[Rfam]
RNA: XIST RNA A repeat
RNA sequence: UGGCCCAACCGGGCUGUGGAUACCGGCCUUUUAUUUUU
Numbered sequence: 001u002g003g004c005c006c007a008a009c010c011g012g013g014c015u016g017u018g019g020a021u022a023c024c025g026g027c028c029u030u031u032u033a034u035u036u037u038u
Base pairs, nucleotide, nucleotide: 003014004013005012006011017026019024